[Rfam]
RNA sequence: CCCCAGCGCAUUAUUACUCACGGUACGAGUUUGAAGUGUCACAGCGCGUACCAAAAGUAAUAAUGGGCCGUGA
Numbered sequence: 001c002c003c004c005a006g007c008g009c010a011u012u013a014u015u016a017c018u019c020a021c022g023g024u025a026c027g028a029g030u031u032u033g034a035a036g037u038g039u040c041a042c043a044g045c046g047c048g049u050a051c052c053a054a055a056a057g058u059a060a061u062a063a064u065g066g067g068c069c070g071u072g073a
Base pairs, nucleotide, nucleotide: 009065010064011063012062013061014060015059016058017057018056022052023051024050025049026048027047029045
Rfam assigns this 73-nucleotide RNA from Merops nubicus to the family "mir-126 microRNA precursor family". Its family is annotated with RISC complex and miRNA-mediated post-transcriptional gene silencing in the Gene Ontology. For this family Rfam cites "Clustering and conservation patterns of human microRNAs" (Altuvia et al., Nucleic Acids Res, 2005). The family has 37 seed sequences and 1,407 matches in Rfam 15.1.